[Rfam]
RNA sequence: UGAUGACUGUUCCUCCUAUUGCCUUCAAGCCUGGCACUAGGAUUUUAGGUCAUCAUAAAUUAAAUUGAUUUUCUUCAUCAGAGAAUAUUGGGGAUAAUGGAUUAUCUGUCUGUUCUCUGAAAUUUGCGGAAUCAACAAAU
Numbered sequence: 001u002g003a004u005g006a007c008u009g010u011u012c013c014u015c016c017u018a019u020u021g022c023c024u025u026c027a028a029g030c031c032u033g034g035c036a037c038u039a040g041g042a043u044u045u046u047a048g049g050u051c052a053u054c055a056u057a058a059a060u061u062a063a064a065u066u067g068a069u070u071u072u073c074u075u076c077a078u079c080a081g082a083g084a085a086u087a088u089u090g091g092g093g094a095u096a097a098u099g100g101a102u103u104a105u106c107u108g109u110c111u112g113u114u115c116u117c118u119g120a121a122a123u124u125u126g127c128g129g130a131a132u133c134a135a136c137a138a139a140u
Stems, first nucleotide, its partner, number of pairs: 001055008014042005020036004067133006078120010092107005

Overview:
This 140-nucleotide sequence from Microcebus murinus belongs to the Rfam family "Small nucleolar RNA SNORA79". The family's consensus secondary structure was predicted with RNAalifold. Rfam's curators write: ACA65 (SNORA79) is a member of the H/ACA class of snoRNAs that guide the sites of modification of uridines to pseudouridines. This snoRNA was identified by computational screening and its expression in mouse experimentally verified by Northern blot and primer extension analysis. For this family Rfam cites "A computational screen for mammalian pseudouridylation guide H/ACA RNAs" (Schattner et al., RNA, 2006). Lineage of the source: Eukaryota > Deuterostomia > Theria > Lemuriformes > Microcebus. It is annotated as an H/ACA-box small nucleolar RNA.